[Rfam]
This 110-nucleotide sequence belongs to the Rfam family "PhotoRC-II RNA". It is one of the family's seed sequences. The base pairs follow the family's consensus structure, which is taken from published work.
RNA sequence: UCACUUUUUCUAUCCUUGGAGCAACGGGUCUAAUCACCUUACCGAGACUAUCCAAGUAAAAUACGUCUCUCAUACCUCUGGUGGAGGGUGCCAGAGGAAUACUUCAUACA
Numbered sequence: 001u002c003a004c005u006u007u008u009u010c011u012a013u014c015c016u017u018g019g020a021g022c023a024a025c026g027g028g029u030c031u032a033a034u035c036a037c038c039u040u041a042c043c044g045a046g047a048c049u050a051u052c053c054a055a056g057u058a059a060a061a062u063a064c065g066u067c068u069c070u071c072a073u074a075c076c077u078c079u080g081g082u083g084g085a086g087g088g089u090g091c092c093a094g095a096g097g098a099a100u101a102c103u104u105c106a107u108a109c110a
Stems, first nucleotide, its partner, number of pairs: 016055005044069005075097007